[Rfam]
Nucleotides: 056
Stems, first nucleotide, its partner, number of pairs: 001022009026056003030053007
Number, partner (000 for none) and nucleotide at each position: 001022u002021c003020c004019c005018g006017g007016g008015g009014c010000g011000u012000c013000c014009g015008c016007u017006c018005c019004g020003g021002g022001g023000g024000a025000a026056c027055u028054g029000a030053c031052a032051c033050c034049g035048g036047u037000a038000c039000c040000u041000g042000a043000c044000a045000c046000g047036g048035c049034c050033g051032g052031u053030g054028c055027a056026g
L17-Actino-Proteobacteria ribosomal protein leader: a 56-nucleotide sequence from Streptomyces sp. ISL-66. A search with the family's covariance model found it, with a score of 68 bits. Taxonomically the source falls in Streptomyces (Bacteria, Bacillati, Kitasatosporales, Streptomycetaceae).